RNA sequence: CCCGCAGUUGGACGGAAAGACCCCGUAGAGCUUUACUGCAAUUUAGCAUUGAACUUCGGUAUUAUCUGUACAGGAUAGGUGGGAGACUAGGAAAUAGCUUCGUCAGGGGCUAUGGAGUCAUCCUUGGGAUACCACCCUGAUAUUAUUGGAGUUCUAACGAAAGGCCAUGAAACUGGUCGUCGGACAUUGCUAGGUGGGCAGUUUGACUGGGGCGGUCGCCUCCUAAAAUGUAACGGAGGCGCCCAAAGGUUCCCUCAGCGCGGUCGGAAAUCGCGCGAAGAGUGCAAAGGCAGAAGGGAGCCUGACUGCGACACAUACAGGUGGAGCAGGGACGAAAGUCGGGCUUAGUGAUCCGGUGGUACCUCGUGGGAGGGCCAUCGCUUAACGGAUAAAAGCUACCUCGGGGAUAACAGGCUGAUCUCCCCCAAGAGUCCACAUCGACGGGGAGGUUUGGCACCUCGAUGUCGGCUCGUCGCAUCCUGGAGCUGAAGUCGGUUCCAAGGGUUGGGCUGUUCGCCCAUUAAAGCGGCACGCGAGCUGGGUUCAGAACGUCGUGAGACAGUUCGGUCCCUAUCCGCUGCGGGCGCA
Numbered sequence: 001c002c003c004g005c006a007g008u009u010g011g012a013c014g015g016a017a018a019g020a021c022c023c024c025g026u027a028g029a030g031c032u033u034u035a036c037u038g039c040a041a042u043u044u045a046g047c048a049u050u051g052a053a054c055u056u057c058g059g060u061a062u063u064a065u066c067u068g069u070a071c072a073g074g075a076u077a078g079g080u081g082g083g084a085g086a087c088u089a090g091g092a093a094a095u096a097g098c099u100u101c102g103u104c105a106g107g108g109g110c111u112a113u114g115g116a117g118u119c120a121u122c123c124u125u126g127g128g129a130u131a132c133c134a135c136c137c138u139g140a141u142a143u144u145a146u147u148g149g150a151g152u153u154c155u156a157a158c159g160a161a162a163g164g165c166c167a168u169g170a171a172a173c174u175g176g177u178c179g180u181c182g183g184a185c186a187u188u189g190c191u192a193g194g195u196g197g198g199c200a201g202u203u204u205g206a207c208u209g210g211g212g213c214g215g216u217c218g219c220c221u222c223c224u225a226a227a228a229u230g231u232a233a234c235g236g237a238g239g240c241g242c243c244c245a246a247a248g249g250u251u252c253c254c255u256c257a258g259c260g261c262g263g264u265c266g267g268a269a270a271u272c273g274c275g276c277g278a279a280g281a282g283u284g285c286a287a288a289g290g291c292a293g294a295a296g297g298g299a300g301c302c303u304g305a306c307u308g309c310g311a312c313a314c315a316u317a318c319a320g321g322u323g324g325a326g327c328a329g330g331g332a333c334g335a336a337a338g339u340c341g342g343g344c345u346u347a348g349u350g351a352u353c354c355g356g357u358g359g360u361a362c363c364u365c366g367u368g369g370g371a372g373g374g375c376c377a378u379c380g381c382u383u384a385a386c387g388g389a390u391a392a393a394a395g396c397u398a399c400c401u402c403g404g405g406g407a408u409a410a411c412a413g414g415c416u417g418a419u420c421u422c423c424c425c426c427a428a429g430a431g432u433c434c435a436c437a438u439c440g441a442c443g444g445g446g447a448g449g450u451u452u453g454g455c456a457c458c459u460c461g462a463u464g465u466c467g468g469c470u471c472g473u474c475g476c477a478u479c480c481u482g483g484a485g486c487u488g489a490a491g492u493c494g495g496u497u498c499c500a501a502g503g504g505u506u507g508g509g510c511u512g513u514u515c516g517c518c519c520a521u522u523a524a525a526g527c528g529g530c531a532c533g534c535g536a537g538c539u540g541g542g543u544u545c546a547g548a549a550c551g552u553c554g555u556g557a558g559a560c561a562g563u564u565c566g567g568u569c570c571c572u573a574u575c576c577g578c579u580g581c582g583g584g585c586g587c588a
Stems, first nucleotide, its partner, number of pairs: 001584008010576003014571002022405004027401002029397005035202004042194007051154011063142004068137001078136005085119003094113008158182003163178005205217004218240006241386001243343002249301006255281002258276006282291002306329004312323003331340003354380007362373002414455003418452001419449007429439002466541001467539004471533001472530005479504002482499006506520005547565004551560003
RNA: Bacterial large subunit ribosomal RNA, nucleotides 2056 to 2643
Organism: Clostridiaceae bacterium 14S0207